[Rfam]
RNA sequence: GCACAUCAAAGGCAAACUCGUCGAAAGACGGGGACGCAAAGCUUCCGGUCUACAGAGUGAAAGCUCCACGACAGCGGGGUUGCUAGC
Numbered sequence: 001g002c003a004c005a006u007c008a009a010a011g012g013c014a015a016a017c018u019c020g021u022c023g024a025a026a027g028a029c030g031g032g033g034a035c036g037c038a039a040a041g042c043u044u045c046c047g048g049u050c051u052a053c054a055g056a057g058u059g060a061a062a063g064c065u066c067c068a069c070g071a072c073a074g075c076g077g078g079g080u081u082g083c084u085a086g087c
Stems, first nucleotide, its partner, number of pairs: 012037002017032006040081004045077003048072003055066004
Dot-bracket structure: ...........((...((((((....))))))...))..((((.((((((....((((....))))...)))..)))))))......
Rfam assigns this 87-nucleotide sequence from a Steroidobacteraceae bacterium to the family "c-di-GMP-I riboswitch aptamer".
A search with the family's covariance model found it, with a score of 79 bits.
NCBI's taxonomy places the organism under Bacteria, Pseudomonadati, Pseudomonadota, Gammaproteobacteria, Steroidobacteraceae.
The family's consensus secondary structure is taken from published work.
Clan: c-di-GMP_I riboswitch clan.